[Rfam]
RNA sequence: UUGAGCUGAGGUUGAUUUAAAGUUAUCGCUGUCUGAAGGGACAUCUUUUGUGAGGAGUUCUGACUUGCUUAGGCUCAA
Numbered sequence: 001u002u003g004a005g006c007u008g009a010g011g012u013u014g015a016u017u018u019a020a021a022g023u024u025a026u027c028g029c030u031g032u033c034u035g036a037a038g039g040g041a042c043a044u045c046u047u048u049u050g051u052g053a054g055g056a057g058u059u060c061u062g063a064c065u066u067g068c069u070u071a072g073g074c075u076c077a078a
Base pairs, nucleotide, nucleotide: 001078002077003076004075005074006073007072